A member of the RNA family "Selenocysteine insertion sequence 1" from Hipposideros armiger, 64 nucleotides long. Lineage of the source: Eukaryota > Theria > Laurasiatheria > Chiroptera > Hipposideros. It is annotated as a cis-regulatory element.

RNA sequence: GCCAGUCAAUGACGACCUGUGCAGAAACCCACCCCGUGGGCUGCCCAUGUCCGAUCCCCCUGGU
Numbered sequence: 001g002c003c004a005g006u007c008a009a010u011g012a013c014g015a016c017c018u019g020u021g022c023a024g025a026a027a028c029c030c031a032c033c034c035c036g037u038g039g040g041c042u043g044c045c046c047a048u049g050u051c052c053g054a055u056c057c058c059c060c061u062g063g064u
Base pairs, nucleotide, nucleotide: 001064002063003062004061005060014051015050016049018047019046021044022043023042029039030038031037